[Rfam]
Nucleotides: 102
Base pairs, nucleotide, nucleotide: 019087020086021085022084023083024082025081030048031047032046033045034044035043058078059077060076061075062074063073064072
Number, partner (000 for none) and nucleotide at each position: 001000a002000g003000a004000a005000a006000u007000g008000a009000a010000c011000g012000a013000u014000u015000a016000a017000u018000a019087c020086c021085u022084c023083a024082u025081a026000u027000a028000a029000a030048u031047u032046c033045g034044g035043g036000a037000a038000u039000a040000a041000g042000g043035c044034u045033c046032g047031a048030a049000c050000g051000u052000u053000u054000c055000u056000a057000c058078c059077u060076a061075a062074u063073c064072g065000c066000c067000a068000u069000a070000a071000a072064c073063g074062a075061u076060u077059g078058g079000u080000c081025u082024a083023u084022g085021a086020g087019g088000a089000a090000g091000u092000a093000g094000u095000a096000u097000u098000u099000g100000c101000g102000c

The family of this 102-nucleotide RNA sequence from Geomicrobium halophilum is "Purine riboswitch aptamer".
Riboswitches are metabolite binding domains within certain messenger RNAs that serve as precision sensors for their corresponding targets.